RNA sequence: ACGGGAAAAACCGAAAACCCUGAACAGAGUAGGUU
Numbered sequence: 001a002c003g004g005g006a007a008a009a010a011c012c013g014a015a016a017a018c019c020c021u022g023a024a025c026a027g028a029g030u031a032g033g034u035u
Base pairs, nucleotide, nucleotide: 003020004019005018010034011033012032
Shown here is a 35-nucleotide RNA from Pedobacter cryoconitis, a member of the family "DUF805b RNA". A search with the family's covariance model found it, with a score of 36 bits. By type it is a cis-regulatory element.